[Rfam]
RNA sequence: AUGAAUGCAUGUUCGCCCCAUUUUUCUCGUAGCUGCGCCGCUGGUCGUUGCGAUGCCGUCAGGCAUGUGACGCGCAGCACGACGGUAAGAGCCGAGCCGCUUGUCCCGGUCGACGGGGCAGCGGCUUUUUUU
Numbered sequence: 001a002u003g004a005a006u007g008c009a010u011g012u013u014c015g016c017c018c019c020a021u022u023u024u025u026c027u028c029g030u031a032g033c034u035g036c037g038c039c040g041c042u043g044g045u046c047g048u049u050g051c052g053a054u055g056c057c058g059u060c061a062g063g064c065a066u067g068u069g070a071c072g073c074g075c076a077g078c079a080c081g082a083c084g085g086u087a088a089g090a091g092c093c094g095a096g097c098c099g100c101u102u103g104u105c106c107c108g109g110u111c112g113a114c115g116g117g118g119c120a121g122c123g124g125c126u127u128u129u130u131u132u
Stems, first nucleotide, its partner, number of pairs: 007038002011033003014029002040078004046072004054065004083094004095126006102120006

Shown here is a 132-nucleotide RNA sequence from Burkholderia sp. lig30, a member of the family "Burkholderia sRNA 2". The literature on the family includes a 2017 paper in Microbiology by Ghosh et al., "Identification of novel small RNAs in Burkholderia cenocepacia KC-01 expressed under iron limitation and oxidative stress conditions". From the family's description: Upregulated in response to iron ion depletion. Predicted targets include MerR family transcriptional regulator. Rfam classes the family as a small RNA.